[Rfam]
RNA sequence: CUGCCGGUGUGAGUCCGGUCCGGGUAGCCGUCAGGAGGCCCGGUAGCAGGUUGGCGGCGUCGGAGGGAAACGUCCGGCGUCGAAGCCCAGCGUCGAAAGCCACUGUGGUGGGAGCGACUGAGCGGUCCGUAGCGUGA
Numbered sequence: 001c002u003g004c005c006g007g008u009g010u011g012a013g014u015c016c017g018g019u020c021c022g023g024g025u026a027g028c029c030g031u032c033a034g035g036a037g038g039c040c041c042g043g044u045a046g047c048a049g050g051u052u053g054g055c056g057g058c059g060u061c062g063g064a065g066g067g068a069a070a071c072g073u074c075c076g077g078c079g080u081c082g083a084a085g086c087c088c089a090g091c092g093u094c095g096a097a098a099g100c101c102a103c104u105g106u107g108g109u110g111g112g113a114g115c116g117a118c119u120g121a122g123c124g125g126u127c128c129g130u131a132g133c134g135u136g137a
Stems, first nucleotide, its partner, number of pairs: 020043005050091005055082006064073001066071001100111004114130003
The family of this 137-nucleotide RNA sequence from Phytoactinopolyspora mesophila is "Group II catalytic intron D1-D4-4". The source organism's lineage runs through Bacteria, Bacillati, Actinomycetota, Actinomycetes and Phytoactinopolyspora. It scores 99 bits against the family's covariance model. The base pairs follow the family's consensus structure. Group II introns are found in rRNA, tRNA and mRNA of organelles in fungi, plants and protists, and also in mRNA in bacteria.